The family of this 136-nucleotide RNA sequence from Streptococcus mutans is "Streptococcus sRNA SpR19". By type it is a small RNA. Taxonomically the source falls in Streptococcus mutans (Bacteria, Bacilli, Lactobacillales, Streptococcus). Pairs were carried over by alignment from the consensus structure, which was predicted with mfold.
[Rfam]
RNA sequence: GCGUUUCUGCAGCGAACCUGAGAGAGUGUAAGUCAGGUGAAACAAAAUAAAGGACUGGCACUUUCUCUUGGCUAAUAGCCAAGCUAACAAUCAGAUAAAUGAAGUAAUAAAUUAGGGUGGAACCGCGUUUCAAACG
Numbered sequence: 001g002c003g004u005u006u007c008u009g010c011a012g013c014g015a016a017c018c019u020g021a022g023a024g025a026g027u028g029u030a031a032g033u034c035a036g037g038u039g040a041a042a043c044a045a046a047a048u049a050a051a052g053g054a055c056u057g058g059c060a061c062u063u064u065c066u067c068u069u070g071g072c073u074a075a076u077a078g079c080c081a082a083g084c085u086a087a088c089a090a091u092c093a094g095a096u097a098a099a100u101g102a103a104g105u106a107a108u109a110a111a112u113u114a115g116g117g118u119g120g121a122a123c124c125g126c127g128u129u130u131c132a133a134a135c136g
Stems, first nucleotide, its partner, number of pairs: 001126002003123005008117001017071002021066003025062004031056004038049002080104001085101002